This 175-nucleotide sequence from Enterococcus sp. PFB1-1 belongs to the Rfam family "Lysine riboswitch aptamer".
[Rfam]
RNA sequence: UCAUGAGGUAGAGGUUGCGGUUCUGAUUAACCCUGUGGAGUAUUGAGCUUACUAUGAAGCAGGUCUAGGCAGCGCCGCCGAAAUGUAAAAGUUCGCUCUUAACUUUUAUGUUGGGACGCAAAUCAAUAAUUUGCGGACUGUCUUAGCAGAAAUGCUAAGUUGUGCUAUGGAUUGA
Numbered sequence: 001u002c003a004u005g006a007g008g009u010a011g012a013g014g015u016u017g018c019g020g021u022u023c024u025g026a027u028u029a030a031c032c033c034u035g036u037g038g039a040g041u042a043u044u045g046a047g048c049u050u051a052c053u054a055u056g057a058a059g060c061a062g063g064u065c066u067a068g069g070c071a072g073c074g075c076c077g078c079c080g081a082a083a084u085g086u087a088a089a090a091g092u093u094c095g096c097u098c099u100u101a102a103c104u105u106u107u108a109u110g111u112u113g114g115g116a117c118g119c120a121a122a123u124c125a126a127u128a129a130u131u132u133g134c135g136g137a138c139u140g141u142c143u144u145a146g147c148a149g150a151a152a153u154g155c156u157a158a159g160u161u162g163u164g165c166u167a168u169g170g171a172u173u174g175a
Stems, first nucleotide, its partner, number of pairs: 008168004017078005023072003032063005082112012113139002117135007142159006

A search with the family's covariance model found it, with a score of 87 bits. Lineage of the source: Bacteria > Bacillati > Bacillota > Enterococcaceae > Enterococcus.